The family of this 79-nucleotide RNA from Canis lupus is "mir-7 microRNA precursor family". This family represents the microRNA (miRNA) precursor mir-7. NCBI's taxonomy places the organism under Eukaryota, Metazoa, Dipnotetrapodomorpha, Amniota, Canis lupus. Rfam's curators put it in the seed alignment.
RNA sequence: UGGUCUAGUGCUGUGUGGAAGACUAGUGAUUUUGUUGUUCUGAUGUACUAUGACAACAAGUCACAGCUUCCUCAUAGCG
Numbered sequence: 001u002g003g004u005c006u007a008g009u010g011c012u013g014u015g016u017g018g019a020a021g022a023c024u025a026g027u028g029a030u031u032u033u034g035u036u037g038u039u040c041u042g043a044u045g046u047a048c049u050a051u052g053a054c055a056a057c058a059a060g061u062c063a064c065a066g067c068u069u070c071c072u073c074a075u076a077g078c079g
Stems, first nucleotide, its partner, number of pairs: 009079001011077005017071002020069002023066002026064007034057006